[Rfam]
RNA sequence: CGCCGCGGUCGUGACUGGCGAAGGUGGACAACCACCGGGGAGCGGCCACCCCCAGAUCGACCCGCUGUGCGCGCCGCCCGCCUGGGUGCCAGGG
Numbered sequence: 001c002g003c004c005g006c007g008g009u010c011g012u013g014a015c016u017g018g019c020g021a022a023g024g025u026g027g028a029c030a031a032c033c034a035c036c037g038g039g040g041a042g043c044g045g046c047c048a049c050c051c052c053c054a055g056a057u058c059g060a061c062c063c064g065c066u067g068u069g070c071g072c073g074c075c076g077c078c079c080g081c082c083u084g085g086g087u088g089c090c091a092g093g094g
Stems, first nucleotide, its partner, number of pairs: 005049001007047006015039002017082004024035004071089005
RNA: ZMP/ZTP riboswitch aptamer (pfl RNA motif)